[Rfam]
RNA sequence: AAGUAUUAAUGGCAAAAUUAGAGAAAUCUAAUGACGCAAAGCUAUAGGAGCUAAAGUUAAAAAACUAUGCUAGCCAGUUGCUAAC
Numbered sequence: 001a002a003g004u005a006u007u008a009a010u011g012g013c014a015a016a017a018u019u020a021g022a023g024a025a026a027u028c029u030a031a032u033g034a035c036g037c038a039a040a041g042c043u044a045u046a047g048g049a050g051c052u053a054a055a056g057u058u059a060a061a062a063a064a065c066u067a068u069g070c071u072a073g074c075c076a077g078u079u080g081c082u083a084a085c
Stems, first nucleotide, its partner, number of pairs: 012037002017032006040079004047075002049071003056065003